[Rfam]
RNA: Small nucleolar RNA SNORA1
Organism: Castor canadensis
RNA sequence: AGCCUCAUUCCAAAUGAGAAUCAGCACUGUUGAUUGGUGUCCUAAAUUAGUUAGUGUGGCUAAAUUCAGACACAGAUCAUGUUUCCAUCACAGUAAAUGCAUUUCAGUGGUGACAAUGAGUCCUGUAACAUUU
Numbered sequence: 001a002g003c004c005u006c007a008u009u010c011c012a013a014a015u016g017a018g019a020a021u022c023a024g025c026a027c028u029g030u031u032g033a034u035u036g037g038u039g040u041c042c043u044a045a046a047u048u049a050g051u052u053a054g055u056g057u058g059g060c061u062a063a064a065u066u067c068a069g070a071c072a073c074a075g076a077u078c079a080u081g082u083u084u085c086c087a088u089c090a091c092a093g094u095a096a097a098u099g100c101a102u103u104u105c106a107g108u109g110g111u112g113a114c115a116a117u118g119a120g121u122c123c124u125g126u127a128a129c130a131u132u133u
Base pairs, nucleotide, nucleotide: 002060003059004058006056007055008054024040025039026038027037072126073125074124075123086112087111088110089109090108091107